RNA sequence: UCAGUGCGAAAGCUGCGAGGCUCGAUACGUGACAGGAGCGGCCGUCCUUAUCGUGGGACGGCACGAUCCGAUAUUCUCGAGCGGGAAGGUCUGAGCAUUUGUGUCCUCCUAGAUUGACUCUAGCAGGGUCCGGCGGCAAACCGCCGAGCGACGUACCAGAUAUGCAAUCCCGAACUCCUCGAACCAUGCCAAUGGUAUGCGAGGCCCCAAGAUCUCCGGUCGAACGGAAGGAGGGCAGGAGUUGCCCGGAUUUUGGGAAACGUCGCGAGGACUGAGCGACGGUGUACUGAUUUCCCAGCAUUGUGCCGUGUGGUCUCGCAAGGGACCAGCGCGCUCUGCUGGGCCCGUCGCUCUUUGGUGCACUUCGCAGCUUGGGGUUAUGCUCUACGUGAGCUACUCAAAACUCGAUUCAGACUAUUCUUGGCCUGC
Numbered sequence: 001u002c003a004g005u006g007c008g009a010a011a012g013c014u015g016c017g018a019g020g021c022u023c024g025a026u027a028c029g030u031g032a033c034a035g036g037a038g039c040g041g042c043c044g045u046c047c048u049u050a051u052c053g054u055g056g057g058a059c060g061g062c063a064c065g066a067u068c069c070g071a072u073a074u075u076c077u078c079g080a081g082c083g084g085g086a087a088g089g090u091c092u093g094a095g096c097a098u099u100u101g102u103g104u105c106c107u108c109c110u111a112g113a114u115u116g117a118c119u120c121u122a123g124c125a126g127g128g129u130c131c132g133g134c135g136g137c138a139a140a141c142c143g144c145c146g147a148g149c150g151a152c153g154u155a156c157c158a159g160a161u162a163u164g165c166a167a168u169c170c171c172g173a174a175c176u177c178c179u180c181g182a183a184c185c186a187u188g189c190c191a192a193u194g195g196u197a198u199g200c201g202a203g204g205c206c207c208c209a210a211g212a213u214c215u216c217c218g219g220u221c222g223a224a225c226g227g228a229a230g231g232a233g234g235g236c237a238g239g240a241g242u243u244g245c246c247c248g249g250a251u252u253u254u255g256g257g258a259a260a261c262g263u264c265g266c267g268a269g270g271a272c273u274g275a276g277c278g279a280c281g282g283u284g285u286a287c288u289g290a291u292u293u294c295c296c297a298g299c300a301u302u303g304u305g306c307c308g309u310g311u312g313g314u315c316u317c318g319c320a321a322g323g324g325a326c327c328a329g330c331g332c333g334c335u336c337u338g339c340u341g342g343g344c345c346c347g348u349c350g351c352u353c354u355u356u357g358g359u360g361c362a363c364u365u366c367g368c369a370g371c372u373u374g375g376g377g378u379u380a381u382g383c384u385c386u387a388c389g390u391g392a393g394c395u396a397c398u399c400a401a402a403a404c405u406c407g408a409u410u411c412a413g414a415c416u417a418u419u420c421u422u423g424g425c426c427u428g429c
Stems, first nucleotide, its partner, number of pairs: 002428003007423003012388001015385001017383001020082005042061005047055001091413005103272004116130005131146006148266007166252005390400004
RNA: Nuclear RNase P